[Rfam]
RNA: JUMPstart RNA
RNA sequence: CGGCGCUUUGGGAGCUGCAACCCAAGGGCGGUAGCGUG
Numbered sequence: 001c002g003g004c005g006c007u008u009u010g011g012g013a014g015c016u017g018c019a020a021c022c023c024a025a026g027g028g029c030g031g032u033a034g035c036g037u038g
Stems, first nucleotide, its partner, number of pairs: 008025005